The record is a 119-nucleotide RNA sequence from Brassica rapa, which matches "MIR9563 microRNA precursor family" in Rfam. The match comes from Rfam's covariance-model search (106 bits). Its family is annotated with RISC complex and miRNA-mediated post-transcriptional gene silencing in the Gene Ontology. The family's consensus secondary structure was predicted with RNAalifold.

RNA sequence: GAAAUAUAAGAAUGCAUCUCUUAACUUUUAACUAAAAAAGCUAAGAACCAGUUCUUAAUAUUUAAGAACCGGUUCUUAGUUUUUUUAGUUAAAAGUUAAGAGACGGAUUUUUAUAUUCC
Numbered sequence: 001g002a003a004a005u006a007u008a009a010g011a012a013u014g015c016a017u018c019u020c021u022u023a024a025c026u027u028u029u030a031a032c033u034a035a036a037a038a039a040g041c042u043a044a045g046a047a048c049c050a051g052u053u054c055u056u057a058a059u060a061u062u063u064a065a066g067a068a069c070c071g072g073u074u075c076u077u078a079g080u081u082u083u084u085u086u087a088g089u090u091a092a093a094a095g096u097u098a099a100g101a102g103a104c105g106g107a108u109u110u111u112u113a114u115a116u117u118c119c
Base pairs, nucleotide, nucleotide: 001119003117004116005115006114007113008112009111010110011109012108013107015105017103018102019101020100021099022098023097024096025095026094027093028092029091030090031089032088033087034086035085036084037083038082039081041079042078043077044076045075046074047073